Background
A member of the RNA family "ZMP/ZTP riboswitch aptamer (pfl RNA motif)" from Limnohabitans radicicola, 159 nucleotides long. Lineage of the source: Bacteria > Pseudomonadati > Betaproteobacteria > Burkholderiales > Limnohabitans. It scores 45 bits against the family's covariance model.
RNA sequence: AGGGGGUUGCGCAACUGGCGAUAGGAGACCGGCUCAGACCUUGACCGGGCCUCUGACGUGGAGCCCGGCGGACCCCCGCCAACAACCACUGGGAAGCGCAUCACCUUGACCGGACCUCAGGUCCGCAACGGGUAUCAGCCGUUCGCCUGGGCAGCCCUU
Numbered sequence: 001a002g003g004g005g006g007u008u009g010c011g012c013a014a015c016u017g018g019c020g021a022u023a024g025g026a027g028a029c030c031g032g033c034u035c036a037g038a039c040c041u042u043g044a045c046c047g048g049g050c051c052u053c054u055g056a057c058g059u060g061g062a063g064c065c066c067g068g069c070g071g072a073c074c075c076c077c078g079c080c081a082a083c084a085a086c087c088a089c090u091g092g093g094a095a096g097c098g099c100a101u102c103a104c105c106u107u108g109a110c111c112g113g114a115c116c117u118c119a120g121g122u123c124c125g126c127a128a129c130g131g132g133u134a135u136c137a138g139c140c141g142u143u144c145g146c147c148u149g150g151g152c153a154g155c156c157c158u159u
Stems, first nucleotide, its partner, number of pairs: 003105002006102001008100005015093002017147005058089004136154001138152003